[Rfam]
RNA: Group I catalytic intron
Organism: Nanohaloarchaea archaeon H01
RNA sequence: GCUAAGUCAUAAUCCUUGAAUUGUGACCUCAAGUCGAGAGACUUGAGAAAAAUCCGGCUGUAUGCGGGAAACACCGCAAGUAUAUCGGGAUACCGGAACACUGCCCUAAAACCGUUUAAACGGCGAUGGGAAGUGUUAAGGUAAAAAUGUCCGAUCGAAGCGGUCAAUCCGCAGGGAAGCUCACUGCAGCUUUUCAAAAGAAAAACUGUAUAGCCCCUCAGAGACUGCACGCCGGCCCCAAGAGGUUGAUUCAAGGAUGUCAAAGGCUUACCUGAAGGGAAUGCUUCACGCCUCGACCGAGCGAGAUUACACUUACAGAAUCUCGCAGAACAACGAAGAACUCACCGAGAUACUUUCCUCUAUUAUUCAGGAUCUAGGAUUUGAUUCCUGGACCUAUGAGGAAGGCGAUAGAGGAGUUCACGUAGUCGAGUUCAGUAAAAAACUCGUUGACGGUUUCGAAAUUAACUCGAAGCCAGAAAAGAGAGACUACAUCCGCGGAUAUUUCGACGCGGAUGGAAGUGUUCCAAAAAGUCCAGAUGUGCGAUUUUACAUCUAUUUCGCACAAAAGGACAGAAAAGACCUUCGAGAAGUACGGAAAUUCCUCGAAGAAUUCAAAAUCGAAACAGGCAAGCUUCACAGACCCAGCAAGAAAUCUAGACCAGAUUACUGAAGAUUUUACGUUUCCAGUAAUUCACACAAUGAUUUCAAUGAAAAAAUUGGGUCUUGGCAUCCUGUCAAGAAUCAACUGUUACGGGAGAUGAUACAGUCCGCGCCUUGACGCGAGUCAGGG
Numbered sequence: 001g002c003u004a005a006g007u008c009a010u011a012a013u014c015c016u017u018g019a020a021u022u023g024u025g026a027c028c029u030c031a032a033g034u035c036g037a038g039a040g041a042c043u044u045g046a047g048a049a050a051a052a053u054c055c056g057g058c059u060g061u062a063u064g065c066g067g068g069a070a071a072c073a074c075c076g077c078a079a080g081u082a083u084a085u086c087g088g089g090a091u092a093c094c095g096g097a098a099c100a101c102u103g104c105c106c107u108a109a110a111a112c113c114g115u116u117u118a119a120a121c122g123g124c125g126a127u128g129g130g131a132a133g134u135g136u137u138a139a140g141g142u143a144a145a146a147a148u149g150u151c152c153g154a155u156c157g158a159a160g161c162g163g164u165c166a167a168u169c170c171g172c173a174g175g176g177a178a179g180c181u182c183a184c185u186g187c188a189g190c191u192u193u194u195c196a197a198a199a200g201a202a203a204a205a206c207u208g209u210a211u212a213g214c215c216c217c218u219c220a221g222a223g224a225c226u227g228c229a230c231g232c233c234g235g236c237c238c239c240a241a242g243a244g245g246u247u248g249a250u251u252c253a254a255g256g257a258u259g260u261c262a263a264a265g266g267c268u269u270a271c272c273u274g275a276a277g278g279g280a281a282u283g284c285u286u287c288a289c290g291c292c293u294c295g296a297c298c299g300a301g302c303g304a305g306a307u308u309a310c311a312c313u314u315a316c317a318g319a320a321u322c323u324c325g326c327a328g329a330a331c332a333a334c335g336a337a338g339a340a341c342u343c344a345c346c347g348a349g350a351u352a353c354u355u356u357c358c359u360c361u362a363u364u365a366u367u368c369a370g371g372a373u374c375u376a377g378g379a380u381u382u383g384a385u386u387c388c389u390g391g392a393c394c395u396a397u398g399a400g401g402a403a404g405g406c407g408a409u410a411g412a413g414g415a416g417u418u419c420a421c422g423u424a425g426u427c428g429a430g431u432u433c434a435g436u437a438a439a440a441a442a443c444u445c446g447u448u449g450a451c452g453g454u455u456u457c458g459a460a461a462u463u464a465a466c467u468c469g470a471a472g473c474c475a476g477a478a479a480a481g482a483g484a485g486a487c488u489a490c491a492u493c494c495g496c497g498g499a500u501a502u503u504u505c506g507a508c509g510c511g512g513a514u515g516g517a518a519g520u521g522u523u524c525c526a527a528a529a530a531g532u533c534c535a536g537a538u539g540u541g542c543g544a545u546u547u548u549a550c551a552u553c554u555a556u557u558u559c560g561c562a563c564a565a566a567a568g569g570a571c572a573g574a575a576a577a578g579a580c581c582u583u584c585g586a587g588a589a590g591u592a593c594g595g596a597a598a599u600u601c602c603u604c605g606a607a608g609a610a611u612u613c614a615a616a617a618u619c620g621a622a623a624c625a626g627g628c629a630a631g632c633u634u635c636a637c638a639g640a641c642c643c644a645g646c647a648a649g650a651a652a653u654c655u656a657g658a659c660c661a662g663a664u665u666a667c668u669g670a671a672g673a674u675u676u677u678a679c680g681u682u683u684c685c686a687g688u689a690a691u692u693c694a695c696a697c698a699a700u701g702a703u704u705u706c707a708a709u710g711a712a713a714a715a716a717u718u719g720g721g722u723c724u725u726g727g728c729a730u731c732c733u734g735u736c737a738a739g740a741a742u743c744a745a746c747u748g749u750u751a752c753g754g755g756a757g758a759u760g761a762u763a764c765a766g767u768c769c770g771c772g773c774c775u776u777g778a779c780g781c782g783a784g785u786c787a788g789g790g
Stems, first nucleotide, its partner, number of pairs: 006027008032043003054235003058231001063173006073164005174217002189206001191204003221769001223768005239753001241750002775788005
Dot-bracket structure: .....((((((((......))))))))....(((......)))..........[[[.[....((((((....(((((..................................................................................)))))...))))))((.............(.(((........))).).........))...(.(((((...].]]]...(.((..........................................................................................................................................................................................................................................................................................................................................................................................................................................................................................................................))..)..........)))))).....(((((....)))))..